Shown here is a 265-nucleotide RNA sequence from Acipenser ruthenus, a member of the family "Small Cajal body specific RNA 6". Rfam 15.1 lists 1,309 matches to the family in 627 species. From the family's description: U88 is small Cajal body specific RNA (scaRNA). scaRNAs are a novel class of small nuclear RNAs which localise to the Cajal bodies. U88 is found associated with both fibrillarin and Gar1p and co-localises with coilin in Cajal bodies. The source organism's lineage runs through Eukaryota, Opisthokonta, Actinopteri, Acipenserini and Acipenser.
[Rfam]
RNA sequence: GGUCAGUGAUGUGAAGUAAGUUCUGAUGCAAAAGGUCCCCUCCCAGAAGCUCCUGGUUCCCAGCAGCCCCUGCUUUCUCCCAGCAUGCUCUAGUUGUGCACUGAUGGGCUCAGGGGCUCCUGACAGAUAGGAUGAUGUCUCAGUCUGUGUCUCCGAGAGACCAAGGAGCCACAACAAUGACACACAUCCGAUACAGCCAAUCAGCAAGGAGCAUUCAGGGCCUGGGCAGGGGCCGUGCGUGAUCUGCAGUUUUCAAGCUGAGACC
Numbered sequence: 001g002g003u004c005a006g007u008g009a010u011g012u013g014a015a016g017u018a019a020g021u022u023c024u025g026a027u028g029c030a031a032a033a034g035g036u037c038c039c040c041u042c043c044c045a046g047a048a049g050c051u052c053c054u055g056g057u058u059c060c061c062a063g064c065a066g067c068c069c070c071u072g073c074u075u076u077c078u079c080c081c082a083g084c085a086u087g088c089u090c091u092a093g094u095u096g097u098g099c100a101c102u103g104a105u106g107g108g109c110u111c112a113g114g115g116g117c118u119c120c121u122g123a124c125a126g127a128u129a130g131g132a133u134g135a136u137g138u139c140u141c142a143g144u145c146u147g148u149g150u151c152u153c154c155g156a157g158a159g160a161c162c163a164a165g166g167a168g169c170c171a172c173a174a175c176a177a178u179g180a181c182a183c184a185c186a187u188c189c190g191a192u193a194c195a196g197c198c199a200a201u202c203a204g205c206a207a208g209g210a211g212c213a214u215u216c217a218g219g220g221c222c223u224g225g226g227c228a229g230g231g232g233c234c235g236u237g238c239g240u241g242a243u244c245u246g247c248a249g250u251u252u253u254c255a256a257g258c259u260g261a262g263a264c265c
Base pairs, nucleotide, nucleotide: 001265002264003263004262033245034244035243036242037241042226043225044224045223046222057211058210059209060208061122062121063120065118066117067116079108080107081106082105084103085102088098130189134188135187136186137185138184146173147172148171149170151168152167153166154165